RNA sequence: UCUAGGCAAGCGCAGAAGAUGUAGAGGUCGCUCACCUUGAGUGGCAGCCCUUUAUGGGUGGGAUCCUCGGUUUCUGGAGCCUACAAUUUU
Numbered sequence: 001u002c003u004a005g006g007c008a009a010g011c012g013c014a015g016a017a018g019a020u021g022u023a024g025a026g027g028u029c030g031c032u033c034a035c036c037u038u039g040a041g042u043g044g045c046a047g048c049c050c051u052u053u054a055u056g057g058g059u060g061g062g063a064u065c066c067u068c069g070g071u072u073u074c075u076g077g078a079g080c081c082u083a084c085a086a087u088u089u090u
Stems, first nucleotide, its partner, number of pairs: 001085001003083005011077001013076004021071002024068003027045007048058003

Record summary:
A member of the RNA family "DUF3800-VII RNA" from Pelagicoccus mobilis, 90 nucleotides long. The family's consensus secondary structure is taken from published work. Rfam classes the family as a small RNA. The match comes from Rfam's covariance-model search (64 bits). The organism belongs to Pelagicoccus, within Bacteria.